[Rfam]
RNA: mir-183 microRNA precursor family
RNA sequence: UUCUGUGUAUGGCACUGGUAGAAUUCACUGUGCAACCCCGCGGUCAGUGAAUUACCAUAGGGCCAUAAACAGA
Numbered sequence: 001u002u003c004u005g006u007g008u009a010u011g012g013c014a015c016u017g018g019u020a021g022a023a024u025u026c027a028c029u030g031u032g033c034a035a036c037c038c039c040g041c042g043g044u045c046a047g048u049g050a051a052u053u054a055c056c057a058u059a060g061g062g063c064c065a066u067a068a069a070c071a072g073a
Stems, first nucleotide, its partner, number of pairs: 003072004008067006016057003022053009